Small nucleolar RNA snoR136: a 141-nucleotide sequence from Solanum lycopersicum. Its family is annotated with RNA processing and nucleolus in the Gene Ontology. The family's RNA type in Rfam is H/ACA-box small nucleolar RNA. A reference for the family is Chen and Wu (2009), "Mining small RNA sequencing data: a new approach to identify small nucleolar RNAs in Arabidopsis", Nucleic Acids Res. The source organism's lineage runs through Eukaryota, Streptophyta, Tracheophyta, Solanales and Solanum subgen. Lycopersicon. A search with the family's covariance model found it, with a score of 68 bits.
[Rfam]
Nucleotides: 141
Base pairs, nucleotide, nucleotide: 001070002069003067004066005065008062009061010060012058013057017052018051029050030049031048032047033046034045077134078133080131081130082129083128085125086124090123091122092121099113100112102111
Number, partner (000 for none) and nucleotide at each position: 001070a002069u003067g004066c005065u006000u007000u008062g009061c010060u011000a012058a013057u014000u015000a016000c017052a018051u019000a020000u021000u022000u023000u024000u025000g026000u027000g028000u029050a030049u031048c032047a033046c034045a035000c036000u037000u038000u039000u040000u041000a042000u043000a044000g045034u046033g047032u048031g049030a050029u051018a052017u053000u054000u055000u056000a057013g058012u059000a060010a061009g062008u063000g064000a065005a066004g067003c068000u069002a070001u071000a072000a073000u074000a075000a076000a077134g078133u079000u080131c081130c082129c083128c084000u085125c086124g087000c088000u089000a090123u091122c092121c093000u094000u095000u096000g097000c098000a099113u100112c101000u102111a103000a104000u105000u106000u107000u108000u109000u110000g111102u112100g113099g114000u115000g116000u117000a118000u119000u120000u121092g122091g123090a124086c125085g126000u127000u128083g129082g130081g131080g132000u133078a134077c135000u136000a137000c138000a139000u140000g141000a